A member of the RNA family "permuted transfer-messenger RNA" from Micavibrio aeruginosavorus, 377 nucleotides long.
Its family is annotated with RNA catabolic process in the Gene Ontology.
For this family Rfam cites "tmRDB (tmRNA database)" (Zwieb et al., Nucleic Acids Res, 2003).
Rfam describes the family as follows. Bacterial tmRNA, also known as 10Sa RNA or SsrA, is named for its dual tRNA and mRNA-like properties.
The match comes from Rfam's covariance-model search (129 bits).
[Rfam]
RNA sequence: GAGGCUAAACGCCGUUCGAAAUAAGCGACGUGGACCCGGGGGCAGUGCCCGGCAGCUCCACCAAAGUCCGCAGUUACGAGCGAAGCGAGUGUUACGAGGACUUUGUCGCGCCGUAGCGGGUGAAACCCGCGGAGGCGGACAGAGAUGAAGCCCGCCUCCGCCCCCAAGGGGCUACGGCGCGGCGCUCAAAAUCCUCAGGCUCACUUCGUUCACCAGCGGAUUUUGGCGGGGCUGAAACAGGAUCGACACGCGUGGUAAAGGGAUGGUUUGUCUUCGGCAUUGUACCGCCGUUAUCGGGCUAUUUUAUAUUUGCAAACGACAACUUCGUCGUAGCGAAUGACAACAGCCGUGAGGCUGCUGUCGCUAUCGCUGCCUAA
Numbered sequence: 001g002a003g004g005c006u007a008a009a010c011g012c013c014g015u016u017c018g019a020a021a022u023a024a025g026c027g028a029c030g031u032g033g034a035c036c037c038g039g040g041g042g043c044a045g046u047g048c049c050c051g052g053c054a055g056c057u058c059c060a061c062c063a064a065a066g067u068c069c070g071c072a073g074u075u076a077c078g079a080g081c082g083a084a085g086c087g088a089g090u091g092u093u094a095c096g097a098g099g100a101c102u103u104u105g106u107c108g109c110g111c112c113g114u115a116g117c118g119g120g121u122g123a124a125a126c127c128c129g130c131g132g133a134g135g136c137g138g139a140c141a142g143a144g145a146u147g148a149a150g151c152c153c154g155c156c157u158c159c160g161c162c163c164c165c166a167a168g169g170g171g172c173u174a175c176g177g178c179g180c181g182g183c184g185c186u187c188a189a190a191a192u193c194c195u196c197a198g199g200c201u202c203a204c205u206u207c208g209u210u211c212a213c214c215a216g217c218g219g220a221u222u223u224u225g226g227c228g229g230g231g232c233u234g235a236a237a238c239a240g241g242a243u244c245g246a247c248a249c250g251c252g253u254g255g256u257a258a259a260g261g262g263a264u265g266g267u268u269u270g271u272c273u274u275c276g277g278c279a280u281u282g283u284a285c286c287g288c289c290g291u292u293a294u295c296g297g298g299c300u301a302u303u304u305u306a307u308a309u310u311u312g313c314a315a316a317c318g319a320c321a322a323c324u325u326c327g328u329c330g331u332a333g334c335g336a337a338u339g340a341c342a343a344c345a346g347c348c349g350u351g352a353g354g355c356u357g358c359u360g361u362c363g364c365u366a367u368c369g370c371u372g373c374c375u376a377a
Stems, first nucleotide, its partner, number of pairs: 001274005014264004026252002030249003036052005053234007275290004